[Rfam]
RNA sequence: GCACUGAAAACUCACUCUUUCUGCUGUGCAGUGCAGAGAAAGGAAACAAAGUGCUAGAGAAACGCAGAGGAAAUCCAGACGGAGCAUGUUUUUAACUUUAUGUUCUGUCCCUACACCUCAGCCACAUGC
Number, nucleotide and partner (000 for none) at each position: 001g054002c053003a052004c051005u050006g000007a000008a000009a000010a000011c000012u000013c000014a000015c042016u041017c000018u039019u038020u037021c036022u000023g000024c000025u000026g000027u000028g000029c000030a000031g000032u000033g000034c000035a000036g021037a020038g019039a018040a000041a016042g015043g000044a000045a000046a000047c000048a000049a000050a005051g004052u003053g002054c001055u000056a000057g000058a000059g000060a000061a000062a000063c000064g122065c121066a000067g119068a118069g117070g000071a000072a000073a000074u000075c000076c000077a000078g109079a108080c107081g106082g105083a104084g103085c000086a000087u000088g000089u000090u000091u000092u000093u000094a000095a000096c000097u000098u000099u000100a000101u000102g000103u084104u083105c082106u081107g080108u079109c078110c000111c000112u000113a000114c000115a000116c000117c069118u068119c067120a000121g065122c064123c000124a000125c000126a000127u000128g000129c000